[Rfam]
RNA sequence: CCUGAGGAAGCGUUUUGCCUACGUGGACAAAAAUUGCUCCCUCAAGGGCGCGCUUUAUGUCCAAGUAGGCAAAACACUCCUUCAAGG
Numbered sequence: 001c002c003u004g005a006g007g008a009a010g011c012g013u014u015u016u017g018c019c020u021a022c023g024u025g026g027a028c029a030a031a032a033a034u035u036g037c038u039c040c041c042u043c044a045a046g047g048g049c050g051c052g053c054u055u056u057a058u059g060u061c062c063a064a065g066u067a068g069g070c071a072a073a074a075c076a077c078u079c080c081u082u083c084a085a086g087g
Stems, first nucleotide, its partner, number of pairs: 001086001003084005009078002012075010024063006031056003035052003040047002